transfer-messenger RNA: a 384-nucleotide RNA sequence from Christensenella hongkongensis. Taxonomically the source falls in Christensenella (Bacteria, Bacillota, Clostridia, Christensenellales). Rfam's curators write: Bacterial tmRNA, also known as 10Sa RNA or SsrA, is named for its dual tRNA and mRNA-like properties. A reference for the family is Williams and Bartel (1996), "Phylogenetic analysis of tmRNA secondary structure", RNA. The base pairs follow the family's consensus structure, which is taken from published work.
[Rfam]
RNA sequence: GGGGAUGUACUGGUUUCGACGGGGGCAUUUGUAAAGGCAAUAAGCAAGCCGCAGUUGAGUACUCUGCGUUAAAAAGAUUCACCUAAAUAUAAAUGCUAAAACAAACAAAACUGCAGAGGUGGGUUCUCCCGCUCUGCUCGCUGCUUAAUUAAAUAAGCGGCCUUCUGACCUUUCCUUUCCUGUUUGGGAAAGAAUCGGGAGCUAAUUUAAAACAGGCUACUAUGCUGCCAAAGCUUUGAGGCGGCAUGGAUUUUAUGAAGCUACUUCUUCCUGAAUUUUGUGGUUUGGGGUCUUGAAGAGGGAAUUUUACAAAAACCAAUAAGCUUGUAGAAAGUUGCCCGGGCAGGCUUUCGGACAGGGGUUCGACUCCCCUCAUCUCCACCA
Numbered sequence: 001g002g003g004g005a006u007g008u009a010c011u012g013g014u015u016u017c018g019a020c021g022g023g024g025g026c027a028u029u030u031g032u033a034a035a036g037g038c039a040a041u042a043a044g045c046a047a048g049c050c051g052c053a054g055u056u057g058a059g060u061a062c063u064c065u066g067c068g069u070u071a072a073a074a075a076g077a078u079u080c081a082c083c084u085a086a087a088u089a090u091a092a093a094u095g096c097u098a099a100a101a102c103a104a105a106c107a108a109a110a111c112u113g114c115a116g117a118g119g120u121g122g123g124u125u126c127u128c129c130c131g132c133u134c135u136g137c138u139c140g141c142u143g144c145u146u147a148a149u150u151a152a153a154u155a156a157g158c159g160g161c162c163u164u165c166u167g168a169c170c171u172u173u174c175c176u177u178u179c180c181u182g183u184u185u186g187g188g189a190a191a192g193a194a195u196c197g198g199g200a201g202c203u204a205a206u207u208u209a210a211a212a213c214a215g216g217c218u219a220c221u222a223u224g225c226u227g228c229c230a231a232a233g234c235u236u237u238g239a240g241g242c243g244g245c246a247u248g249g250a251u252u253u254u255a256u257g258a259a260g261c262u263a264c265u266u267c268u269u270c271c272u273g274a275a276u277u278u279u280g281u282g283g284u285u286u287g288g289g290g291u292c293u294u295g296a297a298g299a300g301g302g303a304a305u306u307u308u309a310c311a312a313a314a315a316c317c318a319a320u321a322a323g324c325u326u327g328u329a330g331a332a333a334g335u336u337g338c339c340c341g342g343g344c345a346g347g348c349u350u351u352c353g354g355a356c357a358g359g360g361g362u363u364c365g366a367c368u369c370c371c372c373u374c375a376u377c378u379c380c381a382c383c384a
Stems, first nucleotide, its partner, number of pairs: 001380007020353007028345001032343001036339006045327005050068005056081005140161008162201006170192007180216002183212002220249009232262006264301007273292001276289003281319001283317001284314003357373005